[Rfam]
RNA sequence: GGAUCAGUGGUGUCAACAUGUUUCUGAGGAAGGUGAUUGACUUGAAACUAUGCCAACCUGAGCUCC
Dot-bracket structure: (((.(........................................................).)))
Small nucleolar RNA SNORD109A: a 66-nucleotide RNA sequence from Mesocricetus auratus. It scores 35 bits against the family's covariance model. The family's consensus secondary structure was predicted with WAR. Rfam's curators write: Humans have two copies of the SNORD109 gene, SNORD109A and SNORD109B. The family has 7 seed sequences and 412 matches in Rfam 15.1.